[Rfam]
RNA sequence: GCUGGGCUCGGUAACGCGGGCUUGUAACCCAAGUGGUGGCUUUAAGGUGAUGGGACGUUGACUCAGCCUAGAAGGUCGGUUCCAGUAUGGCUCUUAUCUGGCCUGCCCGUUCCAAGCCAGGAGUUGAGCCAAGCCUUUCGGGUGAAGACUUGGGUGGCUUGGCUCCUAGAGUGGAGGGUAAAGCGUGAGGCUGGUCACAGAGCAGCGAUCACCUUCCUCUCUUGGCAGUGGAAGGAUAACAGGCCGGUGUCAUCUGGAACCAUAUGGCCCGAUGGGCUGGUCCUAAUUGGACCAUCACUUUU
Numbered sequence: 001g002c003u004g005g006g007c008u009c010g011g012u013a014a015c016g017c018g019g020g021c022u023u024g025u026a027a028c029c030c031a032a033g034u035g036g037u038g039g040c041u042u043u044a045a046g047g048u049g050a051u052g053g054g055a056c057g058u059u060g061a062c063u064c065a066g067c068c069u070a071g072a073a074g075g076u077c078g079g080u081u082c083c084a085g086u087a088u089g090g091c092u093c094u095u096a097u098c099u100g101g102c103c104u105g106c107c108c109g110u111u112c113c114a115a116g117c118c119a120g121g122a123g124u125u126g127a128g129c130c131a132a133g134c135c136u137u138u139c140g141g142g143u144g145a146a147g148a149c150u151u152g153g154g155u156g157g158c159u160u161g162g163c164u165c166c167u168a169g170a171g172u173g174g175a176g177g178g179u180a181a182a183g184c185g186u187g188a189g190g191c192u193g194g195u196c197a198c199a200g201a202g203c204a205g206c207g208a209u210c211a212c213c214u215u216c217c218u219c220u221c222u223u224g225g226c227a228g229u230g231g232a233a234g235g236a237u238a239a240c241a242g243g244c245c246g247g248u249g250u251c252a253u254c255u256g257g258a259a260c261c262a263u264a265u266g267g268c269c270c271g272a273u274g275g276g277c278u279g280g281u282c283c284u285a286a287u288u289g290g291a292c293c294a295u296c297a298c299u300u301u302u
Base pairs, nucleotide, nucleotide: 001040002039003038004023005022006021007020008019009018010017029036030035044301045300046299047298048297049296050295051294052293053292056289057288058286059285060284063280064279065278066277068275069274070273074269075268076267077266078261079260080259081258082257083256084255085254087253088252089251090250092249098247099246100245101244102243103242104241105240107235108234110233111232112231113230114229116226117225118224119223120222121221122220123219126165127164128163129162130161131160132159133158134157135156137154138153139152140151141150142149143148166171173216174215175214176213177212182209184207185206186205191200192199193198

This 302-nucleotide sequence from Salix koriyanagi belongs to the Rfam family "Plant signal recognition particle RNA". Lineage of the source: Eukaryota > Tracheophyta > Magnoliopsida > Malpighiales > Salix. The base pairs follow the family's consensus structure, which is taken from published work. The family's RNA type in Rfam is non-coding RNA gene.